This 79-nucleotide RNA sequence from Phytohabitans rumicis belongs to the Rfam family "SAH (S-adenosyl-L-homocysteine) riboswitch aptamer".
Gene Ontology terms of the family: S-adenosylhomocysteine metabolic process and regulation of gene expression.
Lineage of the source: Bacteria > Bacillati > Actinomycetes > Micromonosporaceae > Phytohabitans.
RNA sequence: CAGGCCGAGAGGCGCUGCAACGGGUUUCAACAACCCGCCACGCUCGGCCAUGCGAAAUCCGCAAGGGCGCCUCCUAUUA
Numbered sequence: 001c002a003g004g005c006c007g008a009g010a011g012g013c014g015c016u017g018c019a020a021c022g023g024g025u026u027u028c029a030a031c032a033a034c035c036c037g038c039c040a041c042g043c044u045c046g047g048c049c050a051u052g053c054g055a056a057a058u059c060c061g062c063a064a065g066g067g068c069g070c071c072u073c074c075u076a077u078u079a
Stems, first nucleotide, its partner, number of pairs: 003049006021037006